[Rfam]
RNA sequence: CGAGUUUCCGGGGAUGGAGUCCCCCGCAACUGCCCCAGGGCUGAUGACUCCUACCUUCGG
Numbered sequence: 001c002g003a004g005u006u007u008c009c010g011g012g013g014a015u016g017g018a019g020u021c022c023c024c025c026g027c028a029a030c031u032g033c034c035c036c037a038g039g040g041c042u043g044a045u046g047a048c049u050c051c052u053a054c055c056u057u058c059g060g
Stems, first nucleotide, its partner, number of pairs: 010025004016051006032041003